This 97-nucleotide RNA from Rattus norvegicus belongs to the Rfam family "Z6 small nucleolar RNA". The literature on the family includes a 2002 paper in Mol Cell Biol by Galardi et al., "Purified box C/D snoRNPs are able to reproduce site-specific 2'-O-methylation of target RNA in vitro". The match comes from Rfam's covariance-model search (53 bits). It is annotated as a C/D-box small nucleolar RNA. Rfam 15.1 lists 212 matches to the family in 144 species.
RNA sequence: UGCUGGUCGUGAAGUUGCCUCAAUCCGAGCACUGGGCCUUGCCUGGGGUAAGCCAGGCGUCUUAUCUGUCUGUCCCAUUCACUGCCUGAAUACAGCA
Numbered sequence: 001u002g003c004u005g006g007u008c009g010u011g012a013a014g015u016u017g018c019c020u021c022a023a024u025c026c027g028a029g030c031a032c033u034g035g036g037c038c039u040u041g042c043c044u045g046g047g048g049u050a051a052g053c054c055a056g057g058c059g060u061c062u063u064a065u066c067u068g069u070c071u072g073u074c075c076c077a078u079u080c081a082c083u084g085c086c087u088g089a090a091u092a093c094a095g096c097a
Stems, first nucleotide, its partner, number of pairs: 001097004